[Rfam]
Nucleotides: 083
Base pairs, nucleotide, nucleotide: 012037013036017032018031019030020029021028022027041076042075043074045073046072047071048068049067050066055062056061
Number, partner (000 for none) and nucleotide at each position: 001000a002000a003000u004000a005000u006000u007000u008000a009000g010000g011000g012037g013036c014000a015000a016000c017032a018031a019030c020029g021028u022027a023000g024000a025000a026000a027022u028021a029020c030019g031018u032017u033000u034000a035000c036013g037012c038000a039000a040000a041076g042075u043074c044000u045073c046072a047071g048068a049067g050066c051000u052000a053000a054000g055062g056061g057000a058000a059000a060000a061056c062055c063000u064000a065000u066050g067049c068048u069000a070000g071047c072046u073045g074043g075042a076041c077000c078000g079000c080000a081000a082000u083000a